[Rfam]
RNA sequence: UAGCAAGCCUCCCGCGUGCUGGGGUCUGCAGUGACCCUGUGCAUUCUUACAGUGCUUGCUAGAACAUUCUUACAGUGCUUGCUAGAAGCAUUUUGAAAUGCUUUGAGGCCUUGCCCUGCUCUAUCCAGAGCAAGGUUAUAGAAAUUUCAAGCAAUU
Numbered sequence: 001u002a003g004c005a006a007g008c009c010u011c012c013c014g015c016g017u018g019c020u021g022g023g024g025u026c027u028g029c030a031g032u033g034a035c036c037c038u039g040u041g042c043a044u045u046c047u048u049a050c051a052g053u054g055c056u057u058g059c060u061a062g063a064a065c066a067u068u069c070u071u072a073c074a075g076u077g078c079u080u081g082c083u084a085g086a087a088g089c090a091u092u093u094u095g096a097a098a099u100g101c102u103u104u105g106a107g108g109c110c111u112u113g114c115c116c117u118g119c120u121c122u123a124u125c126c127a128g129a130g131c132a133a134g135g136u137u138a139u140a141g142a143a144a145u146u147u148c149a150a151g152c153a154a155u156u
Stems, first nucleotide, its partner, number of pairs: 003059006017043003022037005094149005109135006116128003
RNA: Small nucleolar RNA SNORA9
Organism: Octodon degus